[Rfam]
RNA sequence: AGAUAGCACUGUUUUGAUAUUCUCGGCCAAUAACACAAUGACACAUGGAAAAAUUAUCUUACGUGUCAUUGCGUUAUUGGUCGAAAAUAACAAAAAGUAUUAUCC
Numbered sequence: 001a002g003a004u005a006g007c008a009c010u011g012u013u014u015u016g017a018u019a020u021u022c023u024c025g026g027c028c029a030a031u032a033a034c035a036c037a038a039u040g041a042c043a044c045a046u047g048g049a050a051a052a053a054u055u056a057u058c059u060u061a062c063g064u065g066u067c068a069u070u071g072c073g074u075u076a077u078u079g080g081u082c083g084a085a086a087a088u089a090a091c092a093a094a095a096a097g098u099a100u101u102a103u104c105c
Stems, first nucleotide, its partner, number of pairs: 002104004012095005018089003023084012036071009046061003050057001

Description:
MIR6274 microRNA precursor family: a 105-nucleotide sequence from Prunus armeniaca. Lineage of the source: Eukaryota > Viridiplantae > Amygdaloideae > Amygdaleae > Prunus.